[Rfam]
RNA sequence: AUAGUUUUAUAAGCGCCUGAACUAUUUCAAUGGACGGAAAAAUUGAAGUAGUUGACGAGGAGGAGGUUCAUCGAUUCAUCGGCGGAUGCCUCCCGGUUGAGAUCACAACUGUUAAGUUGUCAGUGAAAACGUAGAGGCGACUCUAUGCACAACCACUGAUGACAUGAUCAUCC
Numbered sequence: 001a002u003a004g005u006u007u008u009a010u011a012a013g014c015g016c017c018u019g020a021a022c023u024a025u026u027u028c029a030a031u032g033g034a035c036g037g038a039a040a041a042a043u044u045g046a047a048g049u050a051g052u053u054g055a056c057g058a059g060g061a062g063g064a065g066g067u068u069c070a071u072c073g074a075u076u077c078a079u080c081g082g083c084g085g086a087u088g089c090c091u092c093c094c095g096g097u098u099g100a101g102a103u104c105a106c107a108a109c110u111g112u113u114a115a116g117u118u119g120u121c122a123g124u125g126a127a128a129a130c131g132u133a134g135a136g137g138c139g140a141c142u143c144u145a146u147g148c149a150c151a152a153c154c155a156c157u158g159a160u161g162a163c164a165u166g167a168u169c170a171u172c173c
Stems, first nucleotide, its partner, number of pairs: 020053008029044003062093005071082004094111006116163007130147007
glmS glucosamine-6-phosphate activated ribozyme aptamer: a 173-nucleotide RNA sequence from Halalkalibacillus sediminis. The family's RNA type in Rfam is riboswitch. Lineage of the source: Bacteria > Bacillati > Bacillota > Caryophanales > Halalkalibacillus. On this family, see Winkler et al., Nature 2004: "Control of gene expression by a natural metabolite-responsive ribozyme".